[Rfam]
RNA sequence: GCUUUGUGAUAUAGAAUCGCUGUCGAAGCUACAUACGGAAGAGACGUUUCGGCGGUCUCUUCAUCAAUCUGGCUUUGGGGAAAGUCUCCGGACCCGUGGCAGAGAGUGCCAGCCGUCGUUGGCCCACCUCUGAUACCAGCUUGGUCGCAAAGAAGCCGGGCACUUGGACUCGCAUCUCAGUGUGACUCACCGCUCAGUUUUGCUUUUCCAUUCCUUCCACCAUUUCUUUACUUCUUCUUUCGAGGGUUGUAAAGGAUGGGGGUUGGAUUUGGCUCAGCAAAAUGGUGAGGCUCAUUGUGGUGUGACCCAUUUUCCCGCGCCGAGCGGAGCUGCGUACCAGGAUGUUUGUCACCGCAAAGUAAUGCGAUUGACGGCCAGUCGUGCUCUUCAGCGCCGCUGGCCGUUAACUCAACGGAGCUUACUCUGAGACAGAG
Numbered sequence: 001g002c003u004u005u006g007u008g009a010u011a012u013a014g015a016a017u018c019g020c021u022g023u024c025g026a027a028g029c030u031a032c033a034u035a036c037g038g039a040a041g042a043g044a045c046g047u048u049u050c051g052g053c054g055g056u057c058u059c060u061u062c063a064u065c066a067a068u069c070u071g072g073c074u075u076u077g078g079g080g081a082a083a084g085u086c087u088c089c090g091g092a093c094c095c096g097u098g099g100c101a102g103a104g105a106g107u108g109c110c111a112g113c114c115g116u117c118g119u120u121g122g123c124c125c126a127c128c129u130c131u132g133a134u135a136c137c138a139g140c141u142u143g144g145u146c147g148c149a150a151a152g153a154a155g156c157c158g159g160g161c162a163c164u165u166g167g168a169c170u171c172g173c174a175u176c177u178c179a180g181u182g183u184g185a186c187u188c189a190c191c192g193c194u195c196a197g198u199u200u201u202g203c204u205u206u207u208c209c210a211u212u213c214c215u216u217c218c219a220c221c222a223u224u225u226c227u228u229u230a231c232u233u234c235u236u237c238u239u240u241c242g243a244g245g246g247u248u249g250u251a252a253a254g255g256a257u258g259g260g261g262g263u264u265g266g267a268u269u270u271g272g273c274u275c276a277g278c279a280a281a282a283u284g285g286u287g288a289g290g291c292u293c294a295u296u297g298u299g300g301u302g303u304g305a306c307c308c309a310u311u312u313u314c315c316c317g318c319g320c321c322g323a324g325c326g327g328a329g330c331u332g333c334g335u336a337c338c339a340g341g342a343u344g345u346u347u348g349u350c351a352c353c354g355c356a357a358a359g360u361a362a363u364g365c366g367a368u369u370g371a372c373g374g375c376c377a378g379u380c381g382u383g384c385u386c387u388u389c390a391g392c393g394c395c396g397c398u399g400g401c402c403g404u405u406a407a408c409u410c411a412a413c414g415g416a417g418c419u420u421a422c423u424c425u426g427a428g429a430c431a432g433a434g
Base pairs, nucleotide, nucleotide: 002434003433004432005431006430007429010426011425015369016368017367018366019365020364023078024077025076026075027074028073029072038062039061040060041059042058043057044056082420083419084418086417087416088415089414098110099109100108101107112123113122114121115120127341131339132338134336135335136334137332138331139330140329145327146326147325148324371404372403373402374401375400376399377398378397379396
RNA: RNase MRP
Organism: Monosiga brevicollis